RNA sequence: ACAGAUGGGAAGAUAUACUGUGUUCCUUGAUUGGAAGAAUUGAUUUUGUUAAAAUAACCAUACUACUGAUAUUAUCCUUCUAAAAUAAAAUCUGUGUUGGUCUUUUUUUUUUCCCUUUAUGGGAGUAAACUCAUGACAGAUUGACAUGGAAAAAA
Numbered sequence: 001a002c003a004g005a006u007g008g009g010a011a012g013a014u015a016u017a018c019u020g021u022g023u024u025c026c027u028u029g030a031u032u033g034g035a036a037g038a039a040u041u042g043a044u045u046u047u048g049u050u051a052a053a054a055u056a057a058c059c060a061u062a063c064u065a066c067u068g069a070u071a072u073u074a075u076c077c078u079u080c081u082a083a084a085a086u087a088a089a090a091u092c093u094g095u096g097u098u099g100g101u102c103u104u105u106u107u108u109u110u111u112u113c114c115c116u117u118u119a120u121g122g123g124a125g126u127a128a129a130c131u132c133a134u135g136a137c138a139g140a141u142u143g144a145c146a147u148g149g150a151a152a153a154a155a
Base pairs, nucleotide, nucleotide: 003081004080005079007077008076018068020066021065022064092149093148094147095146096145097144098143099142100141101140102139108133110129111128112127114125116123117122
RNA: Small nucleolar RNA SNORA69